The family of this 337-nucleotide part of an RNA from Mycoplasmopsis fermentans is "Bacterial large subunit ribosomal RNA". Its Rfam clan is "LSU clan". The sequence is in the family's curated seed alignment.
RNA sequence: CGAGAAAACUAGUGUUAAGGAACUCUGCAAAAUGACCCCGUAAGUUCGCAAGAAGGGGCGCCUAAGGUAACACUUAGGCCACAGUAAAUUAUGAGGGGCAACUGUUUAUCAAAAACACAGCUCUCUGCUAAACCGCAAGGUGAUGUAUAGGGGGUGAAGCCUGCCCAGUGCCCGAAGGUUAAGUGGAUGCGUUAGCAUUUGCGAAGCGUUGAAAUGAAGCCCGGGUGAACGGCGGCCGUAACUAUAACGGUCCUAAGGUAGCGAAAUUCCUUGUCGGCUAAAUACUGACCUGCACGAAAGGCGCAAUGAUCUCUCAACUGUCUCAACACUAGACUCG
Dot-bracket structure: ((((....((((((((.(((...............((((....(....).....)))).(((((((......)))))))(...).......(((((((((..(((.........)))..(((((((((...(((....)))...)..))))))))...(((.(((..(((((((..(((...((....((((..((....))...))))....))...))))))))..)))))((((((.......))))))(...).....(.........(((((.......)))))).........)))....)).)))))))....))).)))))))).))))